[Rfam]
RNA sequence: UUCAGAUAUAGGCAAUAUUAGAUAAAUCUAAUGACGCAAAACUAUAGGGACUAAAAUCUUUAUGUAAUAAAGGUCAUGUCAGCCAGUUGCCAAA
Number, nucleotide and partner (000 for none) at each position: 001u000002u000003c000004a000005g000006a000007u000008a000009u000010a000011g000012g037013c036014a000015a000016u000017a032018u031019u030020a029021g028022a027023u000024a000025a000026a000027u022028c021029u020030a019031a018032u017033g000034a000035c000036g013037c012038a000039a000040a088041a087042c086043u085044a000045u000046a000047g084048g083049g080050a079051c078052u000053a000054a000055a000056a074057u073058c072059u071060u070061u069062a068063u000064g000065u000066a000067a000068u062069a061070a060071a059072g058073g057074u056075c000076a000077u000078g051079u050080c049081a000082g000083c048084c047085a043086g042087u041088u040089g000090c000091c000092a000093a000094a000
c-di-GMP-I riboswitch aptamer: a 94-nucleotide RNA from Clostridioides difficile. The organism belongs to Clostridioides, within Bacteria. The literature on the family includes a 2008 paper in Science by Sudarsan et al., "Riboswitches in Eubacteria Sense the Second Messenger Cyclic Di-GMP".